[Rfam]
Shown here is a 123-nucleotide sequence from Cnephaeus nilssonii, a member of the family "mir-9193 microRNA precursor family". A search with the family's covariance model found it, with a score of 56 bits.
RNA sequence: CGUGCACCGGUGGGGUUCCUCAGCCUGGCCUGCAGGAUCGGCUGAAACCGGCUCUCCAACAUCCCAGGAGGGAUCUUGGAUUGCGAGGGCGCAGGCCAGGCUGAGGGACCCCACCAGUGCACG
Numbered sequence: 001c002g003u004g005c006a007c008c009g010g011u012g013g014g015g016u017u018c019c020u021c022a023g024c025c026u027g028g029c030c031u032g033c034a035g036g037a038u039c040g041g042c043u044g045a046a047a048c049c050g051g052c053u054c055u056c057c058a059a060c061a062u063c064c065c066a067g068g069a070g071g072g073a074u075c076u077u078g079g080a081u082u083g084c085g086a087g088g089g090c091g092c093a094g095g096c097c098a099g100g101c102u103g104a105g106g107g108a109c110c111c112c113a114c115c116a117g118u119g120c121a122c123g
Base pairs, nucleotide, nucleotide: 003121004120006118009115010114012112013111014110015109016108017107018106019105020104021103022102023101024100025099027097028096029095030094031093032092033091
Description: The family's consensus secondary structure was predicted with RNAalifold. The organism belongs to Cnephaeus, within Eukaryota.